[Rfam]
RNA sequence: AAGCGUUCACCCUGUUUCAACCAGGGCGCAAAUUAGAACCAGGCCAUGGAACGGGGACCUGGU
Number, nucleotide and partner (000 for none) at each position: 001a000002a000003g000004c053005g052006u051007u050008c049009a000010c026011c025012c024013u023014g022015u000016u000017u000018c000019a000020a000021c000022c014023a013024g012025g011026g010027c000028g000029c000030a000031a000032a000033u000034u000035a000036g000037a000038a063039c062040c061041a060042g059043g058044c056045c055046a000047u000048g000049g008050a007051a006052c005053g004054g000055g045056g044057a000058c043059c042060u041061g040062g039063u038